[Rfam]
RNA sequence: CUGCGUUCUGGGAUUCUGACUGUGACCUGUGUGCAUCCGAUUCACAUCACAGGCAGAGUUCUAGCUACGCGU
Numbered sequence: 001c002u003g004c005g006u007u008c009u010g011g012g013a014u015u016c017u018g019a020c021u022g023u024g025a026c027c028u029g030u031g032u033g034c035a036u037c038c039g040a041u042u043c044a045c046a047u048c049a050c051a052g053g054c055a056g057a058g059u060u061c062u063a064g065c066u067a068c069g070c071g072u
Base pairs, nucleotide, nucleotide: 004069005068006067008064009063010062011061012060013059014058015057016056020052021051022050023049024048025047029045030044031043